[Rfam]
RNA sequence: CCCCCACUCACGUGUGUAGGACCCCAAAGGAUCACCAUUAAAUUUGACAUGGAUGUCUAAAAAAGUUAUCACAUGGGUGUUGGACUUGAUUUUUUUAGAGAUCCGUGCCAAAUUUAAUGGUGAUCUUUGAGGUCCUACACACAUGGGUGGGGG
Numbered sequence: 001c002c003c004c005c006a007c008u009c010a011c012g013u014g015u016g017u018a019g020g021a022c023c024c025c026a027a028a029g030g031a032u033c034a035c036c037a038u039u040a041a042a043u044u045u046g047a048c049a050u051g052g053a054u055g056u057c058u059a060a061a062a063a064a065g066u067u068a069u070c071a072c073a074u075g076g077g078u079g080u081u082g083g084a085c086u087u088g089a090u091u092u093u094u095u096u097a098g099a100g101a102u103c104c105g106u107g108c109c110a111a112a113u114u115u116a117a118u119g120g121u122g123a124u125c126u127u128u129g130a131g132g133u134c135c136u137a138c139a140c141a142c143a144u145g146g147g148u149g150g151g152g153g
Base pairs, nucleotide, nucleotide: 002152003151004150005149006148007147008146009145010144012142013141015139016138017137018136019135020134021133022132023131025129026128027127028126030125031124032123034121035120036119037118038117039116040115041114042113043112044111045110046109048107049106050105051104052103053102054101056099057098058097059096060095061094062093063092064091065090066089067088068087069082071080072079073078
The record is a 153-nucleotide sequence from Amborella trichopoda, which matches "MIR8565 microRNA precursor family" in Rfam.